This 94-nucleotide sequence from Oceanicola sp. 22II-s10i belongs to the Rfam family "Rhodo-rpoB RNA". The family's consensus secondary structure is taken from published work. By type it is a cis-regulatory element.

RNA sequence: GGAUCGGGAGGCCGCCCGUGGGAAGGUGGCCAGGCAUGGAUCCUAGACCCCCUGUCUCGAAUGGACGCAUCGCCGGAGCCCGGCGGCGGUCGCG
Numbered sequence: 001g002g003a004u005c006g007g008g009a010g011g012c013c014g015c016c017c018g019u020g021g022g023a024a025g026g027u028g029g030c031c032a033g034g035c036a037u038g039g040a041u042c043c044u045a046g047a048c049c050c051c052c053u054g055u056c057u058c059g060a061a062u063g064g065a066c067g068c069a070u071c072g073c074c075g076g077a078g079c080c081c082g083g084c085g086g087c088g089g090u091c092g093c094g
Stems, first nucleotide, its partner, number of pairs: 001043005010031007066094003071088005